[Rfam]
RNA sequence: GGUGCGCGAUAGACUUACCUUUACGUGGUGUGCCCUGGGCAACGUAUUCUCAUACGGCUAAAAGGUCAAU
Numbered sequence: 001g002g003u004g005c006g007c008g009a010u011a012g013a014c015u016u017a018c019c020u021u022u023a024c025g026u027g028g029u030g031u032g033c034c035c036u037g038g039g040c041a042a043c044g045u046a047u048u049c050u051c052a053u054a055c056g057g058c059u060a061a062a063a064g065g066u067c068a069a070u
Base pairs, nucleotide, nucleotide: 001036002035004033005032006031007030017029018028019027043056044055045054046053047052